Record summary: Rfam assigns this 91-nucleotide RNA from Vitis vinifera to the family "Small nucleolar RNA snoR14". It is annotated as a C/D-box small nucleolar RNA. Its family is annotated with nucleolus and RNA processing in the Gene Ontology. For this family Rfam cites "Multiple snoRNA gene clusters from Arabidopsis" (Brown et al., RNA, 2001). The pairing is the family consensus, mapped onto this sequence.

[Rfam]
RNA sequence: GCGAGGUGACGAUAGAAUUCAUUGGUCUGUCAAUCCACUGAUAUCAACAUCAGAUGAUGUUAAACAAUGAAUCCCGACAGGUUCUGAUCGC
Number, nucleotide and partner (000 for none) at each position: 001g091002c090003g089004a088005g000006g000007u000008g000009a000010c000011g000012a000013u000014a000015g000016a000017a000018u000019u000020c000021a000022u000023u000024g000025g000026u000027c000028u000029g000030u000031c000032a000033a000034u000035c000036c000037a000038c000039u000040g000041a000042u000043a000044u000045c000046a000047a000048c000049a000050u000051c000052a000053g000054a000055u000056g000057a000058u000059g000060u000061u000062a000063a000064a000065c000066a000067a000068u000069g000070a000071a000072u000073c000074c000075c000076g000077a000078c000079a000080g000081g000082u000083u000084c000085u000086g000087a000088u004089c003090g002091c001